This 227-nucleotide RNA from Esox lucius belongs to the Rfam family "Small nucleolar RNA SNORA53". Gene Ontology terms of the family: RNA processing and nucleolus. Rfam describes the family as follows. The snoRNA ACA53 belongs to the H/ACA family of pseudouridylation guide snoRNAs. The match comes from Rfam's covariance-model search (108 bits). Taxonomically the source falls in Esox (Eukaryota, Opisthokonta, Deuterostomia, Protacanthopterygii).

[Rfam]
RNA sequence: AACACGCUCCUUAGAUCCACCUCUGGGGGGUGCUCCUGGUCUGUUGAGUUGGAUCUAAGUGUUGAUGCAGCUCCAGGCCGGACGCCCCCAGCAGCUUUCUGGCUGUACAGUUGGAGGUGCAUGAGUCAUUGGCGUGUGAGAACAGUCUACCUGCCCCCCAGCCCAAUCCCUGCACUGGCACCUUCACUGGAACUCUUCCAGUGCAGACCGGCUGGGGGGCGGACAUU
Numbered sequence: 001a002a003c004a005c006g007c008u009c010c011u012u013a014g015a016u017c018c019a020c021c022u023c024u025g026g027g028g029g030g031u032g033c034u035c036c037u038g039g040u041c042u043g044u045u046g047a048g049u050u051g052g053a054u055c056u057a058a059g060u061g062u063u064g065a066u067g068c069a070g071c072u073c074c075a076g077g078c079c080g081g082a083c084g085c086c087c088c089c090a091g092c093a094g095c096u097u098u099c100u101g102g103c104u105g106u107a108c109a110g111u112u113g114g115a116g117g118u119g120c121a122u123g124a125g126u127c128a129u130u131g132g133c134g135u136g137u138g139a140g141a142a143c144a145g146u147c148u149a150c151c152u153g154c155c156c157c158c159c160a161g162c163c164c165a166a167u168c169c170c171u172g173c174a175c176u177g178g179c180a181c182c183u184u185c186a187c188u189g190g191a192a193c194u195c196u197u198c199c200a201g202u203g204c205a206g207a208c209c210g211g212c213u214g215g216g217g218g219g220c221g222g223a224c225a226u227u
Base pairs, nucleotide, nucleotide: 002137003136004135005134006133007132008131010125011124012123013122018119019118020117021116022115023114024090025089026088027087028086029085034082035081036080040077041076042075043074046073049070050069051068055064057063091106092105093104094103095102096101151222152221153220154219155218158215160213161212162211163210170206171205172204173203174202175201176200177199178198180196